[Rfam]
About this RNA:
Shown here is a 109-nucleotide RNA from Kingdonia uniflora, a member of the family "Small nucleolar RNA Z107/R87".
RNA sequence: AAUCGUGGUGAUGACUCAAAAAAAUCAAGCUCAACAGACCGUAUUGCAGUUUCUCUCUCACAACAGAGAUUGAAUUUGCAUGUCGAUAAUCCUGCUCAACUGAGCGAUC
Numbered sequence: 001a002a003u004c005g006u007g008g009u010g011a012u013g014a015c016u017c018a019a020a021a022a023a024a025u026c027a028a029g030c031u032c033a034a035c036a037g038a039c040c041g042u043a044u045u046g047c048a049g050u051u052u053c054u055c056u057c058u059c060a061c062a063a064c065a066g067a068g069a070u071u072g073a074a075u076u077u078g079c080a081u082g083u084c085g086a087u088a089a090u091c092c093u094g095c096u097c098a099a100c101u102g103a104g105c106g107a108u109c
Base pairs, nucleotide, nucleotide: 002108003107004106005105006104

The base pairs follow the family's consensus structure, which was predicted with RNAfold. Rfam classes the family as a C/D-box small nucleolar RNA. A search with the family's covariance model found it, with a score of 81 bits. Lineage of the source: Eukaryota > Streptophytina > Tracheophyta > Ranunculales > Kingdonia.